[Rfam]
RNA sequence: UCCCAUCAUUUAAGUCAAGGCUCUUUCUACACUUAAUUGUGUUUCAUAGAAAGAAUCUGUUACAAUGGUGGGAUAUCAAUUAUGUUCCCGUAGUUGAGGGCCGUCUUGGCUUUUCAAUUGGCCUCGUUCGUUUUGGAGGAGGCCGCAAAGGGUUCAAGGUGUUCCGUCGAGUUGAAGUUCGGCUCUGCUUCACGCAGAUCUCCCCGUGCCGAAAUUCUUAGUUACGUUUCACACACGC
Numbered sequence: 001u002c003c004c005a006u007c008a009u010u011u012a013a014g015u016c017a018a019g020g021c022u023c024u025u026u027c028u029a030c031a032c033u034u035a036a037u038u039g040u041g042u043u044u045c046a047u048a049g050a051a052a053g054a055a056u057c058u059g060u061u062a063c064a065a066u067g068g069u070g071g072g073a074u075a076u077c078a079a080u081u082a083u084g085u086u087c088c089c090g091u092a093g094u095u096g097a098g099g100g101c102c103g104u105c106u107u108g109g110c111u112u113u114u115c116a117a118u119u120g121g122c123c124u125c126g127u128u129c130g131u132u133u134u135g136g137a138g139g140a141g142g143c144c145g146c147a148a149a150g151g152g153u154u155c156a157a158g159g160u161g162u163u164c165c166g167u168c169g170a171g172u173u174g175a176a177g178u179u180c181g182g183c184u185c186u187g188c189u190u191c192a193c194g195c196a197g198a199u200c201u202c203c204c205c206g207u208g209c210c211g212a213a214a215u216u217c218u219u220a221g222u223u224a225c226g227u228u229u230c231a232c233a234c235a236c237g238c
Stems, first nucleotide, its partner, number of pairs: 003071005018058003022054006029042004083156002087152001096114007120144006127137004159232003165226003174217003180211004186196003
Record summary
Shown here is a 238-nucleotide RNA sequence from Pseudovirgaria hyperparasitica, a member of the family "Small nucleolar RNA snR191". The match comes from Rfam's covariance-model search (58 bits). Lineage of the source: Eukaryota > Ascomycota > leotiomyceta > Acrospermales > Pseudovirgaria. The family is grouped with related families in Rfam's "SNORA74 clan". Pairs were carried over by alignment from the consensus structure, which was predicted with WAR. A reference for the family is Badis et al. (2003), "A snoRNA that guides the two most conserved pseudouridine modifications within rRNA confers a growth advantage in yeast", RNA.